Shown here is a 60-nucleotide RNA from Alligator sinensis, a member of the family "Ma3 gene ribosomal frameshift signal".
By type it is a frameshift element.
Rfam 15.1 lists 565 matches to the family in 155 species.
[Rfam]
RNA sequence: GGAAAAUGGUGGUGAGACCCGGGGAAGGAGCCGACCCGAGUCUCAGCUCCCUCAGGCUCU
Numbered sequence: 001g002g003a004a005a006a007u008g009g010u011g012g013u014g015a016g017a018c019c020c021g022g023g024g025a026a027g028g029a030g031c032c033g034a035c036c037c038g039a040g041u042c043u044c045a046g047c048u049c050c051c052u053c054a055g056g057c058u059c060u
Stems, first nucleotide, its partner, number of pairs: 014044005020038004028059005